RNA sequence: ACUGCACCUCGAUAGGCGAGGCUCCUGCGUGAACAUAGGCCACUGAUCUGACGACGUCGAGAGACGCCCAAGGUUAGGACAGAUAUCUUCGGAUUAAGGGGAUAUCCAAAGUGGCUUUCCGAUUCGGAACACGUCGCGCAGUGCCAAAGCUCUGACGAGAGGGGUGCGUG
Numbered sequence: 001a002c003u004g005c006a007c008c009u010c011g012a013u014a015g016g017c018g019a020g021g022c023u024c025c026u027g028c029g030u031g032a033a034c035a036u037a038g039g040c041c042a043c044u045g046a047u048c049u050g051a052c053g054a055c056g057u058c059g060a061g062a063g064a065c066g067c068c069c070a071a072g073g074u075u076a077g078g079a080c081a082g083a084u085a086u087c088u089u090c091g092g093a094u095u096a097a098g099g100g101g102a103u104a105u106c107c108a109a110a111g112u113g114g115c116u117u118u119c120c121g122a123u124u125c126g127g128a129a130c131a132c133g134u135c136g137c138g139c140a141g142u143g144c145c146a147a148a149g150c151u152c153u154g155a156c157g158a159g160a161g162g163g164g165u166g167c168g169u170g
Stems, first nucleotide, its partner, number of pairs: 005166006011156001013097001015151003020145003025141008039115005045075005055066004082106004088100003117129003
Shown here is a 170-nucleotide sequence from Nocardia terpenica, a member of the family "M-box riboswitch aptamer (ykoK leader)". Rfam describes the family as follows. M-box riboswitch, also know as ykoK leader is described as a metaloregulatory RNA that sense divalent metals and function as a genetic control element of genes related to divalent metal transport in bacteria. It was first reported upstream of the B.subtilis ykoK gene and genes with related functions in other bacteria. The base pairs follow the family's consensus structure. NCBI's taxonomy places the organism under Bacteria, Bacillati, Actinomycetes, Nocardiaceae, Nocardia. On this family, see Barrick et al., Proc Natl Acad Sci U S A 2004: "New RNA motifs suggest an expanded scope for riboswitches in bacterial genetic control". The match comes from Rfam's covariance-model search (146 bits).